[Rfam]
A member of the RNA family "mir-574 microRNA precursor family" from Myotis lucifugus, 81 nucleotides long.
RNA sequence: AGGCCCGAAGAGAGAGGUAAGGUGUGAUCCGCAGCCUCCGUGGCAGCUGUUGAUCAGCUGUUGCCUCUCUCUUUGUCUCCG
Number, nucleotide and partner (000 for none) at each position: 001a000002g000003g000004c000005c000006c000007g000008a073009a072010g071011a070012g069013a068014g067015a066016g065017g064018u063019a062020a061021g000022g059023u000024g000025u056026g055027a054028u053029c052030c000031g000032c049033a048034g047035c046036c000037u000038c000039c000040g000041u000042g000043g000044c000045a000046g035047c034048u033049g032050u000051u000052g029053a028054u027055c026056a025057g000058c000059u022060g000061u020062u019063g018064c017065c016066u015067c014068u013069c012070u011071c010072u009073u008074u000075g000076u000077c000078u000079c000080c000081g000
Lineage of the source: Eukaryota > Metazoa > Deuterostomia > Sarcopterygii > Myotis.